RNA sequence: GUGCUGUGAUGAUGCGAAUUCAACACAUCAUUCUGAUGUUGCUGUGAUUGAGAGCACUUUCAAAGCACUGAGCACA
Numbered sequence: 001g002u003g004c005u006g007u008g009a010u011g012a013u014g015c016g017a018a019u020u021c022a023a024c025a026c027a028u029c030a031u032u033c034u035g036a037u038g039u040u041g042c043u044g045u046g047a048u049u050g051a052g053a054g055c056a057c058u059u060u061c062a063a064a065g066c067a068c069u070g071a072g073c074a075c076a
Base pairs, nucleotide, nucleotide: 001075002074003073004072
Small nucleolar RNA SNORD63: a 76-nucleotide RNA from Acipenser ruthenus. snoRNA U63 is found in both humans and mice. Gene Ontology terms of the family: nucleolus and RNA processing. A search with the family's covariance model found it, with a score of 47 bits. Rfam 15.1 lists 795 matches to the family in 549 species.